[Rfam]
RNA sequence: UGAACCAGAAGAGGCGCGUCGCCCAGGCAGGGUUGCGGAGGAUCCGUUUUCCGCAGAAGCAACCCCAGGGGGAGCGACGCCGAGGCAGCAUACGGCAAACGGGCCGUCGCUGCCGACCGCAUGGGCUGAAUCCCAUGGGUUGUCACCCGCAUUUUCGCCAUUGGCGAUAGGCACGGUGGGGCGCUUCUGGGUGU
Dot-bracket structure: .....((((((....(((((((.(.....(((((((......................)))))))......).)))))))...((((((..(((((......))))).))))))((((.((((((......)))))))))).(((((...........................)))))....)))))).....
Numbered sequence: 001u002g003a004a005c006c007a008g009a010a011g012a013g014g015c016g017c018g019u020c021g022c023c024c025a026g027g028c029a030g031g032g033u034u035g036c037g038g039a040g041g042a043u044c045c046g047u048u049u050u051c052c053g054c055a056g057a058a059g060c061a062a063c064c065c066c067a068g069g070g071g072g073a074g075c076g077a078c079g080c081c082g083a084g085g086c087a088g089c090a091u092a093c094g095g096c097a098a099a100c101g102g103g104c105c106g107u108c109g110c111u112g113c114c115g116a117c118c119g120c121a122u123g124g125g126c127u128g129a130a131u132c133c134c135a136u137g138g139g140u141u142g143u144c145a146c147c148c149g150c151a152u153u154u155u156c157g158c159c160a161u162u163g164g165c166g167a168u169a170g171g172c173a174c175g176g177u178g179g180g181g182c183g184c185u186u187c188u189g190g191g192u193g194u
Stems, first nucleotide, its partner, number of pairs: 006189006016080007024072001030065007084114006092107005115141004120137006143179005